[Rfam]
The record is a 71-nucleotide RNA, which matches "L4-Archaeoglobi ribosomal protein leades" in Rfam.

RNA sequence: CUGAUACCGCGCAUGGGUGGACGUUCGUGCAACGAGCCCGUUCCUGAACAUUCAGGAUGCGUUCAUUUCAG
Numbered sequence: 001c002u003g004a005u006a007c008c009g010c011g012c013a014u015g016g017g018u019g020g021a022c023g024u025u026c027g028u029g030c031a032a033c034g035a036g037c038c039c040g041u042u043c044c045u046g047a048a049c050a051u052u053c054a055g056g057a058u059g060c061g062u063u064c065a066u067u068u069c070a071g
Stems, first nucleotide, its partner, number of pairs: 001071004006063001008061003012040001015039003022034004042057006